[Rfam]
RNA sequence: AACCCCCAGUUCGACUGGGGGUUCAGGAAAGCUUAUAGCUAUAAGUAGUCAUCCCUUGAACCCAAUGAUAAGAUGGGAGCCGGUCUGCCAACCGCUACCAUCAAUCAAGGAGGACAAGGG
Numbered sequence: 001a002a003c004c005c006c007c008a009g010u011u012c013g014a015c016u017g018g019g020g021g022u023u024c025a026g027g028a029a030a031g032c033u034u035a036u037a038g039c040u041a042u043a044a045g046u047a048g049u050c051a052u053c054c055c056u057u058g059a060a061c062c063c064a065a066u067g068a069u070a071a072g073a074u075g076g077g078a079g080c081c082g083g084u085c086u087g088c089c090a091a092c093c094g095c096u097a098c099c100a101u102c103a104a105u106c107a108a109g110g111a112g113g114a115c116a117a118g119g120g
Base pairs, nucleotide, nucleotide: 001023002022003021004020005019006018007017008016009015010014028042030040031039032038033037053120054119055118056117057116058115062113066107067106068105069104072102073101074100076099077098079096081094082093083092084091
STnc490 Hfq binding RNA: a 120-nucleotide RNA sequence from Effusibacillus dendaii. Rfam 15.1 lists 285 matches to the family in 122 species. By type it is a small RNA. Pairs were carried over by alignment from the consensus structure, which was predicted with WAR. Taxonomically the source falls in Effusibacillus (Bacteria, Bacillati, Bacillota, Bacilli).